The family of this 77-nucleotide RNA sequence from Crocodylus porosus is "Mammalian CPEB3 ribozyme".
[Rfam]
RNA sequence: GGUUGCAAGUUUGAGGCCACAUCAGAAGUGCUCGUGGUGCGGCCCUGUUAGAUUCCGACAGAUCUGUGCAUCCUGCU
Numbered sequence: 001g002g003u004u005g006c007a008a009g010u011u012u013g014a015g016g017c018c019a020c021a022u023c024a025g026a027a028g029u030g031c032u033c034g035u036g037g038u039g040c041g042g043c044c045c046u047g048u049u050a051g052a053u054u055c056c057g058a059c060a061g062a063u064c065u066g067u068g069c070a071u072c073c074u075g076c077u
Base pairs, nucleotide, nucleotide: 013045015044016043017042018041021077023075024074025073027071028040029039030038049066050065051064052063053062054061
A search with the family's covariance model found it, with a score of 38 bits.